[Rfam]
Source information
The record is a 77-nucleotide RNA from Geotrypetes seraphini, which matches "Mammalian CPEB3 ribozyme" in Rfam. Pairs were carried over by alignment from the consensus structure, which is taken from published work. Taxonomically the source falls in Geotrypetes (Eukaryota, Eumetazoa, Chordata, Tetrapoda).
RNA sequence: AUGAUUCCAGUGGGGGCCAUAGCAGGAGCGUUCACGUCACGACCCCUGUCAGAUUAAUUGAAUCUGCGAAUCCUGCU
Numbered sequence: 001a002u003g004a005u006u007c008c009a010g011u012g013g014g015g016g017c018c019a020u021a022g023c024a025g026g027a028g029c030g031u032u033c034a035c036g037u038c039a040c041g042a043c044c045c046c047u048g049u050c051a052g053a054u055u056a057a058u059u060g061a062a063u064c065u066g067c068g069a070a071u072c073c074u075g076c077u
Stems, first nucleotide, its partner, number of pairs: 013046004018041001021077007028040001030038001050066006